[Rfam]
RNA sequence: UGCCUGUCUACACUUGCUGUGCAGAACAUCCUGGAACCUGUACAGCAGGCACAGACAGGCAGA
Numbered sequence: 001u002g003c004c005u006g007u008c009u010a011c012a013c014u015u016g017c018u019g020u021g022c023a024g025a026a027c028a029u030c031c032u033g034g035a036a037c038c039u040g041u042a043c044a045g046c047a048g049g050c051a052c053a054g055a056c057a058g059g060c061a062g063a
Base pairs, nucleotide, nucleotide: 001061002060003059004058005057006056007055008054009053013049015047016046017045018044019043020042022040023039024038